[Rfam]
RNA sequence: GGGCACCAUGCAGGAGAGAGUGGCCGCAAUCAGGCCGCCGCCGAAGGCGCAAGCGCACCCGCAAUCGCUCAGGCUAAAGGACUGUAUGGUAUCC
Numbered sequence: 001g002g003g004c005a006c007c008a009u010g011c012a013g014g015a016g017a018g019a020g021u022g023g024c025c026g027c028a029a030u031c032a033g034g035c036c037g038c039c040g041c042c043g044a045a046g047g048c049g050c051a052a053g054c055g056c057a058c059c060c061g062c063a064a065u066c067g068c069u070c071a072g073g074c075u076a077a078a079g080g081a082c083u084g085u086a087u088g089g090u091a092u093c094c
Stems, first nucleotide, its partner, number of pairs: 006089008020038004040074003043070002047068003053062002
The record is a 94-nucleotide sequence from Aquaspirillum sp. LM1, which matches "Glycine riboswitch aptamer" in Rfam. Its Rfam clan is "Glycine riboswitch clan". A search with the family's covariance model found it, with a score of 68 bits. The pairing is the family consensus, mapped onto this sequence.